Shown here is a 200-nucleotide RNA from Jejuibacter calystegiae, a member of the family "GcvB RNA". By type it is a non-coding RNA gene. Rfam links the family to the GO terms mRNA binding and regulation of gene expression. The gcvB gene encodes a small untranslated RNA involved in expression of the dipeptide and oligopeptide transport systems in Escherichia coli.

RNA sequence: ACUUCCUGAGCCGGAACGAAAAGCUUACGGACUUGUUUCGGGGGCUUUUGGCUUACGGUUGUGAUGUUGUGUUGUUGUGUUUGCAAUUGGUCUGCGAUUCAGACCACGGUAGCAGGGCUACCUGAUUUCACUUUCUGUACAUUUACCCUGUCUGUCCAUAGUGAUUUAAUGUAGCACCGCCAGAUGCGGUGCUUUUUUUU
Numbered sequence: 001a002c003u004u005c006c007u008g009a010g011c012c013g014g015a016a017c018g019a020a021a022a023g024c025u026u027a028c029g030g031a032c033u034u035g036u037u038u039c040g041g042g043g044g045c046u047u048u049u050g051g052c053u054u055a056c057g058g059u060u061g062u063g064a065u066g067u068u069g070u071g072u073u074g075u076u077g078u079g080u081u082u083g084c085a086a087u088u089g090g091u092c093u094g095c096g097a098u099u100c101a102g103a104c105c106a107c108g109g110u111a112g113c114a115g116g117g118c119u120a121c122c123u124g125a126u127u128u129c130a131c132u133u134u135c136u137g138u139a140c141a142u143u144u145a146c147c148c149u150g151u152c153u154g155u156c157c158a159u160a161g162u163g164a165u166u167u168a169a170u171g172u173a174g175c176a177c178c179g180c181c182a183g184a185u186g187c188g189g190u191g192c193u194u195u196u197u198u199u200u
Stems, first nucleotide, its partner, number of pairs: 009053004015049002021047006028040004088106007108122006139172005173193008